A member of the RNA family "mir-7386 microRNA precursor family" from Sarcophilus harrisii, 57 nucleotides long. Rfam links the family to the GO terms RISC complex and miRNA-mediated post-transcriptional gene silencing. The match comes from Rfam's covariance-model search (55 bits). NCBI's taxonomy places the organism under Eukaryota, Gnathostomata, Amniota, Dasyuridae, Sarcophilus.
[Rfam]
RNA sequence: AGUUGGAUAAGGCACUCUGUUUUGUGGAUUCUCUAAAUAAGGACUUUAUCCAUAGAG
Numbered sequence: 001a002g003u004u005g006g007a008u009a010a011g012g013c014a015c016u017c018u019g020u021u022u023u024g025u026g027g028a029u030u031c032u033c034u035a036a037a038u039a040a041g042g043a044c045u046u047u048a049u050c051c052a053u054a055g056a057g
Base pairs, nucleotide, nucleotide: 004052005051006050007049008048009047010046011045012044018039019038020037021036022035024033026032